[Rfam]
RNA sequence: UCCUAUAUUGUCUAGUGGUUAGGAUAUCCGGCUCUCACCCGGAAGGCCCGGGUUCAAUUCCCGGUAUGGGAA
Numbered sequence: 001u002c003c004u005a006u007a008u009u010g011u012c013u014a015g016u017g018g019u020u021a022g023g024a025u026a027u028c029c030g031g032c033u034c035u036c037a038c039c040c041g042g043a044a045g046g047c048c049c050g051g052g053u054u055c056a057a058u059u060c061c062c063g064g065u066a067u068g069g070g071a072a
Stems, first nucleotide, its partner, number of pairs: 001071007010025004027043005048064005
Dot-bracket structure: (((((((..((((........)))).(((((.......)))))....(((((.......)))))))))))).

Record summary
tRNA: a 72-nucleotide RNA sequence from Drosophila melanogaster. Lineage of the source: Eukaryota > Hexapoda > Acalyptratae > Drosophilini > Sophophora. Rfam classes the family as a transfer RNA. It is one of the family's seed sequences.